This 109-nucleotide sequence from Tannerella sp. oral taxon 808 belongs to the Rfam family "Bacteroidales small SRP".
Rfam classes the family as a non-coding RNA gene.
RNA sequence: UUGCGGCGGGAAAGUCCUGCACGACCAGCUCCCUCGGAAUUCCCCCAGGGCUUGACCGCAGCAAGGGUACUUGGUUGUAGCGGUGCGAUGCAGUAAAGCUUUCCCACUU
Numbered sequence: 001u002u003g004c005g006g007c008g009g010g011a012a013a014g015u016c017c018u019g020c021a022c023g024a025c026c027a028g029c030u031c032c033c034u035c036g037g038a039a040u041u042c043c044c045c046c047a048g049g050g051c052u053u054g055a056c057c058g059c060a061g062c063a064a065g066g067g068u069a070c071u072u073g074g075u076u077g078u079a080g081c082g083g084u085g086c087g088a089u090g091c092a093g094u095a096a097a098g099c100u101u102u103c104c105c106a107c108u109u
Base pairs, nucleotide, nucleotide: 008105009104010103011102012101013100014099015098017093018092019091020090021089022087023086024084025083

A search with the family's covariance model found it, with a score of 110 bits. The family's consensus secondary structure is taken from published work. NCBI's taxonomy places the organism under Bacteria, Bacteroidota, Bacteroidales, Tannerellaceae, Tannerella.